[Rfam]
RNA sequence: GAGUUCCAUCCAGUUCAGCUAUCGGGGUUACAUGCAAAGCCUUUAUGGCUCCAUCACCCUGUGGAAAGUCCCCGGAGAAAGGGCGGAAAGCGUCGCAUCGUGACGGUGAAGGCCGGGCCGGUGUCGUAGGGGAGGAACCUGUGCGAUGUCGCGCCUCAAGCGUUGCUCAGAGCACAGUGAAUGUUGAAAGGGACAACGUCCUCAACCAAAUGGGGCUUACUCGGAUUUGGAACU
Numbered sequence: 001g002a003g004u005u006c007c008a009u010c011c012a013g014u015u016c017a018g019c020u021a022u023c024g025g026g027g028u029u030a031c032a033u034g035c036a037a038a039g040c041c042u043u044u045a046u047g048g049c050u051c052c053a054u055c056a057c058c059c060u061g062u063g064g065a066a067a068g069u070c071c072c073c074g075g076a077g078a079a080a081g082g083g084c085g086g087a088a089a090g091c092g093u094c095g096c097a098u099c100g101u102g103a104c105g106g107u108g109a110a111g112g113c114c115g116g117g118c119c120g121g122u123g124u125c126g127u128a129g130g131g132g133a134g135g136a137a138c139c140u141g142u143g144c145g146a147u148g149u150c151g152c153g154c155c156u157c158a159a160g161c162g163u164u165g166c167u168c169a170g171a172g173c174a175c176a177g178u179g180a181a182u183g184u185u186g187a188a189a190g191g192g193a194c195a196a197c198g199u200c201c202u203c204a205a206c207c208a209a210a211u212g213g214g215g216c217u218u219a220c221u222c223g224g225a226u227u228u229g230g231a232a233c234u
Stems, first nucleotide, its partner, number of pairs: 002234006009225003014188006023061006038050004066218003070215004082094004096108005111155003119151010129139002190202005
The family of this 234-nucleotide RNA sequence from Brenthis ino is "RNase MRP". Rfam 15.1 lists 3,510 matches to the family in 2,315 species. Rfam's curators write: RNase MRP is an enzymatically active ribonucleoprotein with two distinct roles in eukaryotes. The family's RNA type in Rfam is ribozyme.